[Rfam]
RNA: skipping-rope RNA
RNA sequence: GAGCUAUGAGGACGUGAGAGUGACACCGUCGCCCCAUAAUUGGAAGGAGAUGUAGGAUCGUCAGCCCUACCUUAGCUU
Numbered sequence: 001g002a003g004c005u006a007u008g009a010g011g012a013c014g015u016g017a018g019a020g021u022g023a024c025a026c027c028g029u030c031g032c033c034c035c036a037u038a039a040u041u042g043g044a045a046g047g048a049g050a051u052g053u054a055g056g057a058u059c060g061u062c063a064g065c066c067c068u069a070c071c072u073u074a075g076c077u078u
Base pairs, nucleotide, nucleotide: 001078002077003076004075005074006073008071011030012029013028014027021063022062023061024060032047034043035042036041052070053069054068055067056066